[Rfam]
RNA: U4atac minor spliceosomal RNA
Nucleotides: 125
Base pairs, nucleotide, nucleotide: 006018007017008016009015021060022059023058026055029052030051031050032049038046083110084109085108086107089103090102091101092100093099094098
Number, partner (000 for none) and nucleotide at each position: 001000a002000c003000c004000a005000u006018c007017u008016u009015u010000u011000u012000c013000u014000u015009g016008g017007g018006g019000u020000u021060g022059u023058g024000c025000u026055g027000c028000c029052g030051u031050c032049c033000a034000a035000u036000g037000a038046g039000c040000a041000c042000a043000u044000a045000a046038u047000g048000a049032g050031g051030g052029c053000a054000a055026u056000a057000u058023u059022g060021c061000u062000a063000a064000c065000g066000c067000u068000a069000a070000a071000c072000a073000a074000c075000a076000c077000a078000c079000c080000c081000a082000c083110a084109u085108c086107a087000a088000c089103u090102a091101g092100a093099g094098c095000u096000u097000u098094g099093c100092u101091u102090u103089a104000c105000c106000u107086u108085g109084g110083u111000a112000c113000a114000a115000u116000u117000u118000u119000u120000g121000g122000a123000a124000a125000a